[Rfam]
The family of this 149-nucleotide RNA sequence from Consotaella salsifontis is "FMN riboswitch aptamer (RFN element)".
The family's consensus secondary structure is taken from published work.
NCBI's taxonomy places the organism under Bacteria, Pseudomonadati, Hyphomicrobiales, Aurantimonadaceae, Consotaella.
It scores 113 bits against the family's covariance model.

RNA sequence: CACUGUUCUCGGGGCGGGGUGAAAAUCCCCACCGGCGGUGACAGGCCAAGCCUGAAGCCCGCGAGCGCCGCGCGAUUGCUUUGCGCGGAUCAGCAGAUUCGGUGCGAUUCCGAAGCCGACGGUUACAGUCCGGAUGGAAGAGAACGAGG
Numbered sequence: 001c002a003c004u005g006u007u008c009u010c011g012g013g014g015c016g017g018g019g020u021g022a023a024a025a026u027c028c029c030c031a032c033c034g035g036c037g038g039u040g041a042c043a044g045g046c047c048a049a050g051c052c053u054g055a056a057g058c059c060c061g062c063g064a065g066c067g068c069c070g071c072g073c074g075a076u077u078g079c080u081u082u083g084c085g086c087g088g089a090u091c092a093g094c095a096g097a098u099u100c101g102g103u104g105c106g107a108u109u110c111c112g113a114a115g116c117c118g119a120c121g122g123u124u125a126c127a128g129u130c131c132g133g134a135u136g137g138a139a140g141a142g143a144a145c146g147a148g149g
Base pairs, nucleotide, nucleotide: 004146005145006144007143008142009141010140017029018028019027031129032128033118034117035062036061037060038059057116058115065094066093098114099113100112101111102110120132121131122130